[Rfam]
RNA sequence: AUUUAGCGUGACAUGCCCGUUGGGUUAUUAAUCUGAUGAAUUAUUUAUUAAUUAAUUGCUUUCGGAUAACGGGGUGUUACAAUUGG
Numbered sequence: 001a002u003u004u005a006g007c008g009u010g011a012c013a014u015g016c017c018c019g020u021u022g023g024g025u026u027a028u029u030a031a032u033c034u035g036a037u038g039a040a041u042u043a044u045u046u047a048u049u050a051a052u053u054a055a056u057u058g059c060u061u062u063c064g065g066a067u068a069a070c071g072g073g074g075u076g077u078u079a080c081a082a083u084u085g086g
Base pairs, nucleotide, nucleotide: 002086003085005083008080009079010078011077012076013075014074016073017072018071019070020069021068
Source information
A member of the RNA family "MIR2617 microRNA precursor family" from Medicago truncatula, 86 nucleotides long.